[Rfam]
Shown here is a 50-nucleotide RNA from Roseibium alexandrii, a member of the family "Guanidine-II riboswitch aptamer (mini-ykkC)".
Gene Ontology term of the family: regulation of gene expression.
From the family's description: Simpler in structure and has fewer highly conserved nucleotide positions than the ykkC-yxkD leader.
RNA sequence: GUACGCGGACGGCCGCGCCUCCCCAUUACAUUCAAUCCGGGACGACCCGA
Number, nucleotide and partner (000 for none) at each position: 001g020002u000003a000004c017005g016006c015007g014008g013009a000010c000011g000012g000013c008014c007015g006016c005017g004018c000019c000020u001021c000022c000023c000024c000025a000026u000027u000028a000029c000030a000031u000032u000033c000034a000035a000036u000037c000038c049039g048040g047041g046042a000043c000044g000045a000046c041047c040048c039049g038050a000